This 66-nucleotide RNA sequence from Paraburkholderia sp. DHOC27 belongs to the Rfam family "Fluoride riboswitch aptamer (crcB RNA motif)".
The match comes from Rfam's covariance-model search (50 bits).

RNA sequence: CUGAUUUCUGGAGAUGGCAUUCUCCUCAAGCGCCGGAAGUCGCCGGCUAAUGAUGCCUACUGAUGC
Dot-bracket structure: .........[[[[..((((((]]]]......((((........))))....)))))).........
Numbered sequence: 001c002u003g004a005u006u007u008c009u010g011g012a013g014a015u016g017g018c019a020u021u022c023u024c025c026u027c028a029a030g031c032g033c034c035g036g037a038a039g040u041c042g043c044c045g046g047c048u049a050a051u052g053a054u055g056c057c058u059a060c061u062g063a064u065g066c
Stems, first nucleotide, its partner, number of pairs: 010025004016057006032047004